[Rfam]
RNA sequence: AUAUUAUCAAGAGAGACUGAGGGAAUAGCCCCAAUGAAGUCCGGCAACCUAUUAAGUUAGGUGCUAAAUGCUACAGGUGAUCACCUGAAAGAUAAGAC
Numbered sequence: 001a002u003a004u005u006a007u008c009a010a011g012a013g014a015g016a017c018u019g020a021g022g023g024a025a026u027a028g029c030c031c032c033a034a035u036g037a038a039g040u041c042c043g044g045c046a047a048c049c050u051a052u053u054a055a056g057u058u059a060g061g062u063g064c065u066a067a068a069u070g071c072u073a074c075a076g077g078u079g080a081u082c083a084c085c086u087g088a089a090a091g092a093u094a095a096g097a098c
Base pairs, nucleotide, nucleotide: 002097004095005094006093007092008091013042015041016040017039021032022031023030026073027072028071029070043065044064045063046062048061049060069090074087075086076085077084078083
RNA: SAM riboswitch aptamer (S box leader)
Organism: Helcococcus ovis